[Rfam]
S15-Halobacteria ribosomal protein leader: a 66-nucleotide RNA. For this family Rfam cites "Discovery of 20 novel ribosomal leader candidates in bacteria and archaea" (Eckert and Weinberg, BMC Microbiol, 2020). The sequence is in the family's curated seed alignment. Rfam classes the family as a cis-regulatory leader.
RNA sequence: UAAGGGACAGCGCAGCCGCUCAUCCGACAAGCUACACAUUUGUGUUGCUAGGGAAGGUGGUAGUGC
Number, nucleotide and partner (000 for none) at each position: 001u000002a000003a000004g000005g000006g000007a000008c000009a000010g066011c065012g064013c063014a000015g061016c060017c059018g058019c057020u056021c000022a000023u000024c053025c052026g000027a000028c000029a000030a000031g048032c047033u000034a045035c044036a043037c042038a000039u000040u000041u000042g037043u036044g035045u034046u000047g032048c031049u000050a000051g000052g025053g024054a000055a000056g020057g019058u018059g017060g016061u015062a000063g013064u012065g011066c010